[Rfam]
RNA: Glycine riboswitch aptamer
RNA sequence: GCCCGUCGCGCGGGAGAGAGCCCUUUCCCGAGAGCCGCCGAAGGCGUAACCCCCCGGGAACCGCUCAGGCAAAAGGACCGCGCGGGCAUC
Numbered sequence: 001g002c003c004c005g006u007c008g009c010g011c012g013g014g015a016g017a018g019a020g021c022c023c024u025u026u027c028c029c030g031a032g033a034g035c036c037g038c039c040g041a042a043g044g045c046g047u048a049a050c051c052c053c054c055c056g057g058g059a060a061c062c063g064c065u066c067a068g069g070c071a072a073a074a075g076g077a078c079c080g081c082g083c084g085g086g087c088a089u090c
Base pairs, nucleotide, nucleotide: 006085007084008083009082010081011080012079013078020035021034023032037070038069039068040066041065044064045063046062050057051056